[Rfam]
RNA sequence: UUGAAAUUGACUGGAGAUAUUAUGUACUACAUAAUAACCGAAGAAGCAAAACAGCUAUAAGCCAGGUAGAUGUUGAAACUCUCAGGUACAAUACAGUCAAGGGACG
Numbered sequence: 001u002u003g004a005a006a007u008u009g010a011c012u013g014g015a016g017a018u019a020u021u022a023u024g025u026a027c028u029a030c031a032u033a034a035u036a037a038c039c040g041a042a043g044a045a046g047c048a049a050a051a052c053a054g055c056u057a058u059a060a061g062c063c064a065g066g067u068a069g070a071u072g073u074u075g076a077a078a079c080u081c082u083c084a085g086g087u088a089c090a091a092u093a094c095a096g097u098c099a100a101g102g103g104a105c106g
Stems, first nucleotide, its partner, number of pairs: 007100007019035004037087003040083002045080002050074004